[Rfam]
RNA sequence: CCCGGUCCUCGGUAGUGGCUCUCGGAAGGCGACUUCCGCGGGCCUCGAUCGAAGACCGGC
Numbered sequence: 001c002c003c004g005g006u007c008c009u010c011g012g013u014a015g016u017g018g019c020u021c022u023c024g025g026a027a028g029g030c031g032a033c034u035u036c037c038g039c040g041g042g043c044c045u046c047g048a049u050c051g052a053a054g055a056c057c058g059g060c
Base pairs, nucleotide, nucleotide: 002059003058004057005056006055007054009052010051011050012049013048017044018043019042020041021040023038024037025036026035027034028033
Record summary:
The record is a 60-nucleotide RNA sequence from Nocardioides mangrovicus, which matches "Actino-pnp RNA" in Rfam. By type it is a cis-regulatory element. It scores 65 bits against the family's covariance model.